RNA sequence: UCCGAUAGGUGAGGUCAUCCAAGGUAAGUGGUGCCAAAGGCACCCGCCUCACCGCCCGCAAGGGUAGAACAGGGAGGAGGU
Numbered sequence: 001u002c003c004g005a006u007a008g009g010u011g012a013g014g015u016c017a018u019c020c021a022a023g024g025u026a027a028g029u030g031g032u033g034c035c036a037a038a039g040g041c042a043c044c045c046g047c048c049u050c051a052c053c054g055c056c057c058g059c060a061a062g063g064g065u066a067g068a069a070c071a072g073g074g075a076g077g078a079g080g081u
Base pairs, nucleotide, nucleotide: 001074002073003072004070008053009052010051011050012049013048014047015046028045030044031043032042033041034040054065055064056063057062

This 81-nucleotide RNA belongs to the Rfam family "DUF1874 RNA".
It is one of the family's seed sequences.